[Rfam]
RNA sequence: ACGGGUAUUCUUGGGUAGAUAAUACCAAUGGCGCUGUUAUUGCUUGAGAAUACACGUAG
Number, nucleotide and partner (000 for none) at each position: 001a057002c056003g055004g000005g053006u052007a051008u050009u049010c048011u047012u046013g045014g044015g043016u042017a000018g041019a040020u039021a038022a037023u036024a035025c033026c000027a000028a000029u000030g000031g000032c000033g025034c000035u024036g023037u022038u021039a020040u019041u018042g016043c015044u014045u013046g012047a011048g010049a009050a008051u007052a006053c005054a000055c003056g002057u001058a000059g000
Notes: The family of this 59-nucleotide RNA from Monodelphis domestica is "mir-137 microRNA precursor family". Lineage of the source: Eukaryota > Vertebrata > Amniota > Mammalia > Monodelphis. The family is grouped with related families in Rfam's "mir-137 clan". Rfam's curators put it in the seed alignment. On this family, see Ruby et al., Genome Res 2007: "Evolution, biogenesis, expression, and target predictions of a substantially expanded set of Drosophila microRNAs".